[Rfam]
RNA sequence: GGCCCGUUAGUCUAGCGGUUAGGACAUCGGCCUCUCACGCCGAGAGCAUGGGUUCAAGUCCCGUACGGGUCA
Numbered sequence: 001g002g003c004c005c006g007u008u009a010g011u012c013u014a015g016c017g018g019u020u021a022g023g024a025c026a027u028c029g030g031c032c033u034c035u036c037a038c039g040c041c042g043a044g045a046g047c048a049u050g051g052g053u054u055c056a057a058g059u060c061c062c063g064u065a066c067g068g069g070u071c072a
Base pairs, nucleotide, nucleotide: 001071002070003069004068005067006066007065010025011024012023013022027043028042029041030040031039048064049063050062051061052060